[Rfam]
RNA sequence: GUAAUAAAAGGGCAAACUUAUUGAAAGAUAAGGACGCAAAACUAUGGGUCUAAGUACGUAUUAGGUAUAUGACCGCCAGGUUGCAAAA
Numbered sequence: 001g002u003a004a005u006a007a008a009a010g011g012g013c014a015a016a017c018u019u020a021u022u023g024a025a026a027g028a029u030a031a032g033g034a035c036g037c038a039a040a041a042c043u044a045u046g047g048g049u050c051u052a053a054g055u056a057c058g059u060a061u062u063a064g065g066u067a068u069a070u071g072a073c074c075g076c077c078a079g080g081u082u083g084c085a086a087a088a
Stems, first nucleotide, its partner, number of pairs: 012037002017032006040082004045078003048073003055067003
A member of the RNA family "c-di-GMP-I riboswitch aptamer" from Allolucifera butyrica, 88 nucleotides long.